Shown here is a 74-nucleotide RNA from Litoreibacter ponti, a member of the family "Singlet oxygen resistance RNA X". SorX (RSs2461)like SorY is a singlet oxygen induced sRNA that counteracts oxidative stress by targeting mRNA for a transporter in Rhodobacter. It also has an impact on resistance against organic hydroperoxides. It targets SD sequence of potA mRNA via an aSD sequence. The aSD sequence and some neighbouring nucleotides are identical to the one of SorY (targets takP mRNA). The match comes from Rfam's covariance-model search (57 bits). The pairing is the family consensus, mapped onto this sequence. The literature on the family includes a 2009 paper in Mol Microbiol by Berghoff et al., "Photooxidative stress-induced and abundant small RNAs in Rhodobacter sphaeroides".
RNA sequence: AAUCAUCGAGAGGCGCUGAUGCGUUUCUCACCUCCCUGUUGGACUUUGGCCGAGCUUCGUGCUCGGCCUUUUUU
Numbered sequence: 001a002a003u004c005a006u007c008g009a010g011a012g013g014c015g016c017u018g019a020u021g022c023g024u025u026u027c028u029c030a031c032c033u034c035c036c037u038g039u040u041g042g043a044c045u046u047u048g049g050c051c052g053a054g055c056u057u058c059g060u061g062c063u064c065g066g067c068c069u070u071u072u073u074u
Stems, first nucleotide, its partner, number of pairs: 008029007048068008